[Rfam]
RNA sequence: CGGCGGACGCCGCCGAGUCGCCUCCCGGGGCGAGCCGGGGACCCACCGCACCACUGGGGUGAAUCCCCUCCUGGCCACGCGCCGGGGGAGGUAGGGCCGCUUCCCGCCCGAACCCGUCAGCUGACCCGGUAGGCGGCCAUCGGAAGAACG
Numbered sequence: 001c002g003g004c005g006g007a008c009g010c011c012g013c014c015g016a017g018u019c020g021c022c023u024c025c026c027g028g029g030g031c032g033a034g035c036c037g038g039g040g041a042c043c044c045a046c047c048g049c050a051c052c053a054c055u056g057g058g059g060u061g062a063a064u065c066c067c068c069u070c071c072u073g074g075c076c077a078c079g080c081g082c083c084g085g086g087g088g089a090g091g092u093a094g095g096g097c098c099g100c101u102u103c104c105c106g107c108c109c110g111a112a113c114c115c116g117u118c119a120g121c122u123g124a125c126c127c128g129g130u131a132g133g134c135g136g137c138c139a140u141c142g143g144a145a146g147a148a149c150g
Base pairs, nucleotide, nucleotide: 011135012134013133014132018033019032020031021030022029034130035129036128037127038126039125044056045055057115058114059113065091066090068088069087070086071085072084073083074082075081094109095108096107097106
The record is a 150-nucleotide RNA sequence from Geodermatophilus dictyosporus, which matches "c-di-AMP riboswitch aptamer (ydaO/yuaA leader)" in Rfam. The match comes from Rfam's covariance-model search (59 bits). Rfam links the family to the GO terms cyclic-di-AMP binding and regulation of gene expression. The source organism's lineage runs through Bacteria, Bacillati, Geodermatophilales, Geodermatophilaceae and Geodermatophilus.